[Rfam]
RNA sequence: UAAAUUUCUUCAACAGUUGCACUGACUUGUUUCUUUUGUAGUGGUAAGUGCUUCCUGUUGGGGUAGUUUUA
Numbered sequence: 001u002a003a004a005u006u007u008c009u010u011c012a013a014c015a016g017u018u019g020c021a022c023u024g025a026c027u028u029g030u031u032u033c034u035u036u037u038g039u040a041g042u043g044g045u046a047a048g049u050g051c052u053u054c055c056u057g058u059u060g061g062g063g064u065a066g067u068u069u070u071a
Stems, first nucleotide, its partner, number of pairs: 004067003008063004013058004019051005025045003

Shown here is a 71-nucleotide RNA sequence from Polypterus senegalus, a member of the family "miR-430 microRNA precursor family". Lineage of the source: Eukaryota > Craniata > Gnathostomata > Polypteriformes > Polypterus. Rfam links the family to the GO terms RISC complex and miRNA-mediated post-transcriptional gene silencing. A search with the family's covariance model found it, with a score of 50 bits.